[Rfam]
RNA sequence: UUUAGCAUCGGCUUUACGCGCGCGAAUGCCGUUAGCUACCGCAUGUAAUAAGUGGGUCUUACCUAAACCGGUACCGCCAUA
Number, nucleotide and partner (000 for none) at each position: 001u000002u000003u000004a000005g042006c041007a000008u000009c000010g037011g036012c035013u034014u000015u000016a032017c031018g030019c000020g029021c028022g000023c000024g000025a000026a000027u000028g021029c020030c018031g017032u016033u000034a013035g012036c011037u010038a000039c000040c000041g006042c005043a000044u000045g000046u000047a000048a000049u000050a000051a000052g077053u076054g075055g000056g074057u073058c000059u000060u000061a072062c071063c070064u000065a000066a000067a000068c000069c000070g063071g062072u061073a057074c056075c054076g053077c052078c000079a000080u000081a000

The record is an 81-nucleotide RNA from Oceanisphaera avium, which matches "antisense RNA of dnaA mRNA" in Rfam. The source organism's lineage runs through Bacteria, Pseudomonadati, Gammaproteobacteria, Aeromonadales and Oceanisphaera. The family's consensus secondary structure was predicted with RNAfold.